[Rfam]
RNA: speF leader
Organism: Labrenzia sp. THAF82
Nucleotides: 153
Stems, first nucleotide, its partner, number of pairs: 002023007035055004062144003085105002114126002117123001
Number, partner (000 for none) and nucleotide at each position: 001000g002023g003022c004021c005020g006019g007018g008017g009000u010000u011000u012000c013000c014000a015000a016000u017008c018007u019006c020005c021004g022003g023002u024000g025000u026000c027000a028000c029000u030000g031000a032000a033000g034000a035055g036054g037053c038052a039000c040000u041000u042000g043000u044000u045000a046000c047000a048000u049000c050000a051000u052038u053037g054036c055035c056000c057000g058000a059000c060000g061000u062144g063143c064142g065000g066000c067000u068000c069000g070000g071000u072000a073000c074000u075000u076000c077000c078000g079000a080000u081000c082000c083000a084000a085105u086104c087000a088000a089000c090000g091000g092000c093000a094000u095000u096000c097000c098000c099000g100000a101000c102000g103000c104086g105085g106000g107000a108000a109000a110000g111000c112000a113000a114126u115125g116000c117123a118000c119000u120000g121000u122000u123117u124000u125115c126114a127000g128000u129000u130000g131000c132000g133000c134000u135000g136000c137000c138000c139000a140000a141000c142064c143063g144062u145000c146000g147000c148000u149000g150000c151000g152000u153000c